[Rfam]
RNA sequence: CUCCCCGAAAUAGCUUUAGGGCUAGCCUCGAGUGAUGCAUGCAGACGGUAGAGCACUGAUCGGGCAAGGGGGCGUAAAGCCUACCGACCCCAGUCAAACUGCGAAUGGCUGCAUGUCAAACUCGGGAGUCAGCGUGCGAGUGAUAAGACCCGUACGCAAGAGGGAAACAGCCCAGACCGCCAGCUAAGGUCCCCAAUGCUGUACUAAGUGGAAAAGGAUGUAGGAAUUCGAAAACAACCAGGAUGUUGGCUCAGAAGCAGCCACCAUUUAAAGAGUGCGUAAUAGCUCACUGGUCGAGAGUCCCUGCGCCGAAAAUAUCCGGGGCUCAAGUACAGAACCGAAGCUGCGGCUGCAUACGAAAGUAUGCGGGGUAGGGGAGCGUACCAUGCGCGGCGAAGCCGUACCGGAAGGAGCGGUGGAGUGCAUGGCAGUGAGAAU
Numbered sequence: 001c002u003c004c005c006c007g008a009a010a011u012a013g014c015u016u017u018a019g020g021g022c023u024a025g026c027c028u029c030g031a032g033u034g035a036u037g038c039a040u041g042c043a044g045a046c047g048g049u050a051g052a053g054c055a056c057u058g059a060u061c062g063g064g065c066a067a068g069g070g071g072g073c074g075u076a077a078a079g080c081c082u083a084c085c086g087a088c089c090c091c092a093g094u095c096a097a098a099c100u101g102c103g104a105a106u107g108g109c110u111g112c113a114u115g116u117c118a119a120a121c122u123c124g125g126g127a128g129u130c131a132g133c134g135u136g137c138g139a140g141u142g143a144u145a146a147g148a149c150c151c152g153u154a155c156g157c158a159a160g161a162g163g164g165a166a167a168c169a170g171c172c173c174a175g176a177c178c179g180c181c182a183g184c185u186a187a188g189g190u191c192c193c194c195a196a197u198g199c200u201g202u203a204c205u206a207a208g209u210g211g212a213a214a215a216g217g218a219u220g221u222a223g224g225a226a227u228u229c230g231a232a233a234a235c236a237a238c239c240a241g242g243a244u245g246u247u248g249g250c251u252c253a254g255a256a257g258c259a260g261c262c263a264c265c266a267u268u269u270a271a272a273g274a275g276u277g278c279g280u281a282a283u284a285g286c287u288c289a290c291u292g293g294u295c296g297a298g299a300g301u302c303c304c305u306g307c308g309c310c311g312a313a314a315a316u317a318u319c320c321g322g323g324g325c326u327c328a329a330g331u332a333c334a335g336a337a338c339c340g341a342a343g344c345u346g347c348g349g350c351u352g353c354a355u356a357c358g359a360a361a362g363u364a365u366g367c368g369g370g371g372u373a374g375g376g377g378a379g380c381g382u383a384c385c386a387u388g389c390g391c392g393g394c395g396a397a398g399c400c401g402u403a404c405c406g407g408a409a410g411g412a413g414c415g416g417u418g419g420a421g422u423g424c425a426u427g428g429c430a431g432u433g434a435g436a437a438u
Base pairs, nucleotide, nucleotide: 001379002378003377004376005375006374011024012023013022014021015020026128027126028125029124030123031122032121033120036119037116038115039114040113041112042111043110044109046107051102052100053099057096058095059094062091063090064089068085069084070082071081072080073079132157133156134155135154136153137152138151140149141148162173163172164171177349178348179347180346182345183344184343188339189338190337197336199335200334201333202332203331204330216310217309220307221306222305223304224303226301227300228299229298237294238293239292240291241290243267244266245265248262249261250260268272273288277286278285350369351368352367353366354365355364356363357362380433382430384428385427386426387425388424389423390422391421398417399416400415401414402413404411405410
Background:
The family of this 438-nucleotide part of an RNA from Selenomonas sputigena is "Bacterial large subunit ribosomal RNA". Lineage of the source: Bacteria > Bacillati > Negativicutes > Selenomonas > Selenomonas sputigena. Pairs were carried over by alignment from the consensus structure, which is taken from published work. The sequence is in the family's curated seed alignment.